[Rfam]
Nucleotides: 061
Base pairs, nucleotide, nucleotide: 004041005040006039007038009032010030011029012028013027014023015022016021
Number, partner (000 for none) and nucleotide at each position: 001000u002000c003000a004041a005040g006039g007038g008000u009032u010030u011029c012028c013027g014023a015022g016021u017000u018000a019000g020000a021016g022015c023014u024000u025000a026000a027013c028012g029011g030010a031000u032009g033000a034000a035000a036000a037000a038007c039006c040005c041004u042000c043000g044000c045000c046000g047000g048000a049000c050000a051000c052000g053000u054000c055000g056000a057000a058000g059000a060000g061000g